[Rfam]
RNA: Fungal signal recognition particle RNA
Organism: Aspergillus fumigatiaffinis
RNA sequence: AAUCUGUCACGGAUAACCUAGUGGAAGGCCCACCGCUAAGUCAGUAACCUUGCUGCGGCAUUUGCCAGCGGGAAAGGUGCCCGGUACGAAUCCUGGGGUCGUCGUUGUACUCGUGCGAGUAAUCCGCGAUGCUACAAGGCGCUAAGCAAUGGAAGUGAUACUUGAGGGAAGCAAUUCUGCAGAGGCACUUCCACCCUGGGAUGGCGUCGCCGGAGGACACCUACCCGUUACAGGGAAAUUGGCUGUUUGGCUGGACAACCGCAAUCUCUU
Numbered sequence: 001a002a003u004c005u006g007u008c009a010c011g012g013a014u015a016a017c018c019u020a021g022u023g024g025a026a027g028g029c030c031c032a033c034c035g036c037u038a039a040g041u042c043a044g045u046a047a048c049c050u051u052g053c054u055g056c057g058g059c060a061u062u063u064g065c066c067a068g069c070g071g072g073a074a075a076g077g078u079g080c081c082c083g084g085u086a087c088g089a090a091u092c093c094u095g096g097g098g099u100c101g102u103c104g105u106u107g108u109a110c111u112c113g114u115g116c117g118a119g120u121a122a123u124c125c126g127c128g129a130u131g132c133u134a135c136a137a138g139g140c141g142c143u144a145a146g147c148a149a150u151g152g153a154a155g156u157g158a159u160a161c162u163u164g165a166g167g168g169a170a171g172c173a174a175u176u177c178u179g180c181a182g183a184g185g186c187a188c189u190u191c192c193a194c195c196c197u198g199g200g201a202u203g204g205c206g207u208c209g210c211c212g213g214a215g216g217a218c219a220c221c222u223a224c225c226c227g228u229u230a231c232a233g234g235g236a237a238a239u240u241g242g243c244u245g246u247u248u249g250g251c252u253g254g255a256c257a258a259c260c261g262c263a264a265u266c267u268c269u270u
Stems, first nucleotide, its partner, number of pairs: 002014003019264001021262004027256001030254003033250003039244007048235003057066003069227001071225002075222005081213005086207003090202009100141001102139002106136004111129005117124002142146001150193007161184003168177003